[Rfam]
RNA sequence: GAAUGUGUGAGGAGUACAAUGAAGAACGCCCCUGGAGUCGAAACACGGCAAGACGUCCAGGGGCGUUCUGCU
Numbered sequence: 001g002a003a004u005g006u007g008u009g010a011g012g013a014g015u016a017c018a019a020u021g022a023a024g025a026a027c028g029c030c031c032c033u034g035g036a037g038u039c040g041a042a043a044c045a046c047g048g049c050a051a052g053a054c055g056u057c058c059a060g061g062g063g064c065g066u067u068c069u070g071c072u
Base pairs, nucleotide, nucleotide: 025067026066027065028064029063032060033059034058035057036056037054038053039052
Shown here is a 72-nucleotide RNA from Stenomitos frigidus, a member of the family "Cyano-1 RNA". The organism belongs to Stenomitos frigidus, within Bacteria.